[Rfam]
RNA sequence: GUAGUGUCCGCUAUUGCCAGUACACCUCAAAUCCCCCUGUGCGGAGGGGCAAUCAGCGAGUAGGUAUAUGGGAUAAUCGCGGAUUCAGGUGCUGGUACUGAAUUCACCGGGAGGCACCCGGCACCAUGCAAUGGCACAUAGCGCCACUCUCCAGCCCCUCUCCGGAGGGGCUGUUUAUAUUGAU
Numbered sequence: 001g002u003a004g005u006g007u008c009c010g011c012u013a014u015u016g017c018c019a020g021u022a023c024a025c026c027u028c029a030a031a032u033c034c035c036c037c038u039g040u041g042c043g044g045a046g047g048g049g050c051a052a053u054c055a056g057c058g059a060g061u062a063g064g065u066a067u068a069u070g071g072g073a074u075a076a077u078c079g080c081g082g083a084u085u086c087a088g089g090u091g092c093u094g095g096u097a098c099u100g101a102a103u104u105c106a107c108c109g110g111g112a113g114g115c116a117c118c119c120g121g122c123a124c125c126a127u128g129c130a131a132u133g134g135c136a137c138a139u140a141g142c143g144c145c146a147c148u149c150u151c152c153a154g155c156c157c158c159u160c161u162c163c164g165g166a167g168g169g170g171c172u173g174u175u176u177a178u179a180u181u182g183a184u
Base pairs, nucleotide, nucleotide: 008134009133010132028128034049035048036047037046038045070080072078081105082104083103084102086100087099088098107121108120109119110118111117143184145182146181152173153172154171155170156169157168158167159166

Notes: Shown here is a 184-nucleotide RNA from Shigella dysenteriae, a member of the family "Gammaproteobacterial sRNA STnc100". Rfam classes the family as a small RNA. Pairs were carried over by alignment from the consensus structure, which was predicted with CMfinder. NCBI's taxonomy places the organism under Bacteria, Enterobacterales, Enterobacteriaceae, Shigella, Shigella dysenteriae.